[Rfam]
RNA sequence: CCAUUGCCUGCCGCUGCCAAACUCGAUUUAUCGGGUUGGUUUACGGUAGGCGCCGGCGGGGGAGACAUUUAUCACAGCAUGUCUCAUGCCCGACCCCGCUAUUUACUCCUGUGCCUACUCAUACUUACAGUAGGGGUAGGCAUCUUCCUGCUGCCUGCUCGGUAGGCAGCUUA
Number, nucleotide and partner (000 for none) at each position: 001c000002c000003a000004u000005u000006g051007c050008c049009u048010g047011c046012c045013g044014c000015u000016g041017c000018c039019a000020a037021a036022c035023u034024c033025g032026a031027u000028u000029u000030a000031u026032c025033g024034g023035g022036u021037u020038g000039g018040u000041u016042u000043a000044c013045g012046g011047u010048a009049g008050g007051c006052g000053c000054c000055g100056g099057c098058g097059g096060g095061g094062g085063a084064g083065a082066c081067a080068u000069u000070u000071a000072u000073c000074a000075c000076a000077g000078c000079a000080u067081g066082u065083c064084u063085c062086a000087u000088g000089c000090c000091c000092g000093a000094c061095c060096c059097c058098g057099c056100u055101a000102u000103u000104u000105a000106c000107u000108c000109c000110u000111g000112u142113g141114c140115c139116u138117a137118c136119u135120c134121a000122u132123a131124c130125u000126u000127a000128c000129a000130g124131u123132a122133g000134g120135g119136g118137u117138a116139g115140g114141c113142a112143u000144c000145u000146u000147c000148c000149u000150g170151c169152u168153g167154c166155c165156u164157g163158c000159u000160c000161g000162g000163u157164a156165g155166g154167c153168a152169g151170c150171u000172u000173a000
RNA: Hepatitis C virus (HCV) cis-acting replication element (CRE)
Organism: Orthohepacivirus hominis